[Rfam]
Record summary
Rfam assigns this 170-nucleotide RNA from Bacillus sp. FJAT-49711 to the family "Manganese Mn2+ riboswitch aptamer (yybP-ykoY)".
RNA sequence: CGUAAAGUCAAAGGGGAGUAGCGUUAGGUAGAAUUAGAGAUUCUGCCUAAAACAAAGUCGUCAUUUCGUGAAGGAAUUCACCGGCUUUGUUGGCAUAAACAUGUCCAGCAAGACCUUUGCCCAUAUGGCAGAGGUCUUUUUGUUUUUAUUAAAAGCAAAAUUUCCUGCCU
Numbered sequence: 001c002g003u004a005a006a007g008u009c010a011a012a013g014g015g016g017a018g019u020a021g022c023g024u025u026a027g028g029u030a031g032a033a034u035u036a037g038a039g040a041u042u043c044u045g046c047c048u049a050a051a052a053c054a055a056a057g058u059c060g061u062c063a064u065u066u067c068g069u070g071a072a073g074g075a076a077u078u079c080a081c082c083g084g085c086u087u088u089g090u091u092g093g094c095a096u097a098a099a100c101a102u103g104u105c106c107a108g109c110a111a112g113a114c115c116u117u118u119g120c121c122c123a124u125a126u127g128g129c130a131g132a133g134g135u136c137u138u139u140u141u142g143u144u145u146u147u148a149u150u151a152a153a154a155g156c157a158a159a160a161u162u163u164c165c166u167g168c169c170u
Stems, first nucleotide, its partner, number of pairs: 025049006051091010068081005092169004098163001

Rfam describes the family as follows. This RNA was originally discovered in E. coli during a large scale screen and was named SraF. The family was later found to exist upstream of related families of protein genes in many bacteria, including the the yybP and ykoK genes in B. subtilis.